[Rfam]
RNA sequence: CAAUUAUAGUAACAGUCAUGGAAUCGCUGAUUCCAGCGAUAAUGUAAGCCUAAGCGGA
Numbered sequence: 001c002a003a004u005u006a007u008a009g010u011a012a013c014a015g016u017c018a019u020g021g022a023a024u025c026g027c028u029g030a031u032u033c034c035a036g037c038g039a040u041a042a043u044g045u046a047a048g049c050c051u052a053a054g055c056g057g058a
Stems, first nucleotide, its partner, number of pairs: 023040007
Shown here is a 58-nucleotide RNA, a member of the family "porB RNA".